This 149-nucleotide RNA sequence from Jeotgalicoccus saudimassiliensis belongs to the Rfam family "PyrR binding site". From the family's description: This family represents the PyrR binding site and terminator structure. This RNA structure is found upstream of a variety of genes involved in pyrimidine biosynthesis and transport. The alignment also includes a portion of the antiterminator structure. The base pairs follow the family's consensus structure, which is taken from published work. The source organism's lineage runs through Bacteria, Bacillati, Bacillota, Staphylococcaceae and Jeotgalicoccus. The literature on the family includes a 2001 paper in Nucleic Acids Res by Bonner et al., "Molecular recognition of pyr mRNA by the Bacillus subtilis attenuation regulatory protein PyrR".
RNA sequence: GGUGCCUUUAAAUCAGUCCAGAGAGACUGACAAGGACAGCGCGAUGUAAUAUCGUGCGGUUAAACACGCCCACAGUGAGGGGAUAGUUUGCCGUACCUUGUUAUAGAGAAAGCUUCCUGUCAUGUUUCCGGCAGGAAGCUUUUCUUUUU
Numbered sequence: 001g002g003u004g005c006c007u008u009u010a011a012a013u014c015a016g017u018c019c020a021g022a023g024a025g026a027c028u029g030a031c032a033a034g035g036a037c038a039g040c041g042c043g044a045u046g047u048a049a050u051a052u053c054g055u056g057c058g059g060u061u062a063a064a065c066a067c068g069c070c071c072a073c074a075g076u077g078a079g080g081g082g083a084u085a086g087u088u089u090g091c092c093g094u095a096c097c098u099u100g101u102u103a104u105a106g107a108g109a110a111a112g113c114u115u116c117c118u119g120u121c122a123u124g125u126u127u128c129c130g131g132c133a134g135g136a137a138g139c140u141u142u143u144c145u146u147u148u149u
Base pairs, nucleotide, nucleotide: 005035006034007033008032013030014029015028016027017026018025046104047103048102049101050100051099054096055095056094057093058092059091108143109142110141111140112139113138114137115136116135117134118133119132120131